[Rfam]
RNA sequence: ACGAGAAAAGGCAAACCGGCCGCGAGGCCGGGACGCAAAGCCACGGAUCCCACCCACAUCAUCGCAAUCACGUACGGGACCGCCGGGCUGCCUCGU
Numbered sequence: 001a002c003g004a005g006a007a008a009a010g011g012c013a014a015a016c017c018g019g020c021c022g023c024g025a026g027g028c029c030g031g032g033a034c035g036c037a038a039a040g041c042c043a044c045g046g047a048u049c050c051c052a053c054c055c056a057c058a059u060c061a062u063c064g065c066a067a068u069c070a071c072g073u074a075c076g077g078g079a080c081c082g083c084c085g086g087g088c089u090g091c092c093u094c095g096u
Base pairs, nucleotide, nucleotide: 001096003093011036012035016031017030018029019028020027021026034082039089040088041087042086044085045084046083048079049078050077051076
RNA: c-di-GMP-I-GGC riboswitch aptamer
Organism: Euzebya pacifica